[Rfam]
RNA sequence: UAAUGAAGGUGGCAAAACUCCCGAAAGGGAGUGACGCAAAGCCAUGGGUCUACCGCUCCGCCCUACGGAGCCACGAUCGCCAGGUUGCCGGC
Numbered sequence: 001u002a003a004u005g006a007a008g009g010u011g012g013c014a015a016a017a018c019u020c021c022c023g024a025a026a027g028g029g030a031g032u033g034a035c036g037c038a039a040a041g042c043c044a045u046g047g048g049u050c051u052a053c054c055g056c057u058c059c060g061c062c063c064u065a066c067g068g069a070g071c072c073a074c075g076a077u078c079g080c081c082a083g084g085u086u087g088c089c090g091g092c
Stems, first nucleotide, its partner, number of pairs: 012037002017032006040086004045082003048077003055071006
Notes: The record is a 92-nucleotide RNA from Paenibacillus flagellatus, which matches "c-di-GMP-I riboswitch aptamer" in Rfam. The match comes from Rfam's covariance-model search (74 bits). The organism belongs to Paenibacillus, within Bacteria.